Small nucleolar RNA SNORA14: a 136-nucleotide RNA from Denticeps clupeoides. From the family's description: ACA14 is a member of the H/ACA class of snoRNA that guide the sites of modification of uridines to pseudouridines. The base pairs follow the family's consensus structure, which was predicted with RNAfold. Its family is annotated with nucleolus and RNA processing in the Gene Ontology. By type it is an H/ACA-box small nucleolar RNA.
RNA sequence: AUGCAUUCUUCAAAACCCCCCAGAUGCUUUUCUUAGCUUUUGGGACAAGCAAGAAUGCCAGAUAAACCUCUAGAACUAUCCAAAGUUGAGAGCCGUGUCACGGUGGCUCUAGACUAUUUCACCUCUAGAACAUUAU
Numbered sequence: 001a002u003g004c005a006u007u008c009u010u011c012a013a014a015a016c017c018c019c020c021c022a023g024a025u026g027c028u029u030u031u032c033u034u035a036g037c038u039u040u041u042g043g044g045a046c047a048a049g050c051a052a053g054a055a056u057g058c059c060a061g062a063u064a065a066a067c068c069u070c071u072a073g074a075a076c077u078a079u080c081c082a083a084a085g086u087u088g089a090g091a092g093c094c095g096u097g098u099c100a101c102g103g104u105g106g107c108u109c110u111a112g113a114c115u116a117u118u119u120c121a122c123c124u125c126u127a128g129a130a131c132a133u134u135a136u
Stems, first nucleotide, its partner, number of pairs: 003058004011049001019044005026037002062136003069129006084115004089110002092107002098103001